[Rfam]
RNA sequence: UGGGUUGCCAACAAGCGCGGGUCUGGCGGAGCGCGGUGGCGCGCGGAGAUCGCGAGGAGACCGGGAGCGGCUGGACCCCCGGCGGCGCGCCCCUCGGUCGGGCCGGGAGCCGCGCCAGUCGGUGCCGCCGGCCGAGCGCGGUCCGCCUCCCUGUCGGUCAUCGAUCCGGAGCGCGGCCGGCGGGCAUGCCGGAUCCACCAGGGGCGCCGCCGCCGGCGCUCGCAGGCCGCGGGUGAAGAAGAAAGUGCAGCCUCGCUCGGCCCGGGGUGAAGAGGUGGCCCAGAGCGAAGAGGUGACCCCGAGCGAAGAGGAGGCCCGGAGCGAGGAAAUG
Numbered sequence: 001u002g003g004g005u006u007g008c009c010a011a012c013a014a015g016c017g018c019g020g021g022u023c024u025g026g027c028g029g030a031g032c033g034c035g036g037u038g039g040c041g042c043g044c045g046g047a048g049a050u051c052g053c054g055a056g057g058a059g060a061c062c063g064g065g066a067g068c069g070g071c072u073g074g075a076c077c078c079c080c081g082g083c084g085g086c087g088c089g090c091c092c093c094u095c096g097g098u099c100g101g102g103c104c105g106g107g108a109g110c111c112g113c114g115c116c117a118g119u120c121g122g123u124g125c126c127g128c129c130g131g132c133c134g135a136g137c138g139c140g141g142u143c144c145g146c147c148u149c150c151c152u153g154u155c156g157g158u159c160a161u162c163g164a165u166c167c168g169g170a171g172c173g174c175g176g177c178c179g180g181c182g183g184g185c186a187u188g189c190c191g192g193a194u195c196c197a198c199c200a201g202g203g204g205c206g207c208c209g210c211c212g213c214c215g216g217c218g219c220u221c222g223c224a225g226g227c228c229g230c231g232g233g234u235g236a237a238g239a240a241g242a243a244a245g246u247g248c249a250g251c252c253u254c255g256c257u258c259g260g261c262c263c264g265g266g267g268u269g270a271a272g273a274g275g276u277g278g279c280c281c282a283g284a285g286c287g288a289a290g291a292g293g294u295g296a297c298c299c300c301g302a303g304c305g306a307a308g309a310g311g312a313g314g315c316c317c318g319g320a321g322c323g324a325g326g327a328a329a330u331g
Stems, first nucleotide, its partner, number of pairs: 020104008038093002041090002043053004061082005067076001165184004202221008254269005
A member of the RNA family "Bag-1 internal ribosome entry site (IRES)" from Equus asinus, 331 nucleotides long.
Rfam links the family to the GO term ribosome binding.
NCBI's taxonomy places the organism under Eukaryota, Opisthokonta, Sarcopterygii, Eutheria, Equus.
About the family: This family represents the bag-1 internal ribosome entry site (IRES). When expressed the BAG-1 protein is known to enhance the anti-apoptotic properties of Bcl-2.